RNA sequence: CCCAUGGGGAAUGCGAUCUCCCCAUGAGGCGACAGGCUGAAGUAUCGCGUCCCAACCAUCUUGAGGACGCAUCAUG
Dot-bracket structure: ....((((((........))))))......................((((((............))))))......
Numbered sequence: 001c002c003c004a005u006g007g008g009g010a011a012u013g014c015g016a017u018c019u020c021c022c023c024a025u026g027a028g029g030c031g032a033c034a035g036g037c038u039g040a041a042g043u044a045u046c047g048c049g050u051c052c053c054a055a056c057c058a059u060c061u062u063g064a065g066g067a068c069g070c071a072u073c074a075u076g
Stems, first nucleotide, its partner, number of pairs: 005024006047070006

chrB-a RNA: a 76-nucleotide RNA from Sphingomonas alpina. Rfam 15.1 lists 347 matches to the family in 339 species. The family's RNA type in Rfam is cis-regulatory element. The base pairs follow the family's consensus structure, which is taken from published work.